A member of the RNA family "Plastid-psbA-1 3UTR RNA" from Musa balbisiana, 106 nucleotides long. Plastid psbA-1 is a non-coding RNA (ncRNA) present in plastids. It was identified in inverted repeat sequences in the 3 prime untranslate region (3UTR) of photosystem II quinone-binding protein (psbA). On this family, see Richter et al., Plant Commun 2023: "Retrograde signaling in plants: A critical review focusing on the GUN pathway and beyond". NCBI's taxonomy places the organism under Eukaryota, Viridiplantae, Euphyllophyta, Zingiberales, Musa.
RNA sequence: UUGAAAUUGAAAAAUAAUUUUUUUUUUGUGAAAAAAAAAAUAAAGUAUCAAACAAAGUAGCAAUACCCCAUGUCUGCUAAAGCAAGACAUGGGGUAUUGCUACUUU
Numbered sequence: 001u002u003g004a005a006a007u008u009g010a011a012a013a014a015u016a017a018u019u020u021u022u023u024u025u026u027u028g029u030g031a032a033a034a035a036a037a038a039a040a041u042a043a044a045g046u047a048u049c050a051a052a053c054a055a056a057g058u059a060g061c062a063a064u065a066c067c068c069c070a071u072g073u074c075u076g077c078u079a080a081a082g083c084a085a086g087a088c089a090u091g092g093g094g095u096a097u098u099g100c101u102a103c104u105u106u
Stems, first nucleotide, its partner, number of pairs: 054106013068092003072088004